[Rfam]
RNA sequence: CUCUGGAGAGAGGCCCUUUGCUGGGUCCGCCGAAGGGAUAGCGAUCUCAGGCACACGAACAGAG
Number, nucleotide and partner (000 for none) at each position: 001c064002u063003c062004u061005g060006g000007a000008g000009a000010g000011a000012g027013g026014c025015c024016c000017u000018u000019u000020g000021c000022u000023g000024g015025g014026u013027c012028c000029g052030c051031c050032g048033a047034a000035g000036g046037g045038a000039u000040a000041g000042c000043g000044a000045u037046c036047u033048c032049a000050g031051g030052c029053a000054c000055a000056c000057g000058a000059a000060c005061a004062g003063a002064g001
Annotation:
The family of this 64-nucleotide RNA from Pseudooceanicola spongiae is "Glycine riboswitch aptamer". Taxonomically the source falls in Pseudooceanicola (Bacteria, Pseudomonadota, Rhodobacterales, Paracoccaceae). It scores 37 bits against the family's covariance model. Its family is annotated with glycine biosynthetic process in the Gene Ontology. The pairing is the family consensus, mapped onto this sequence.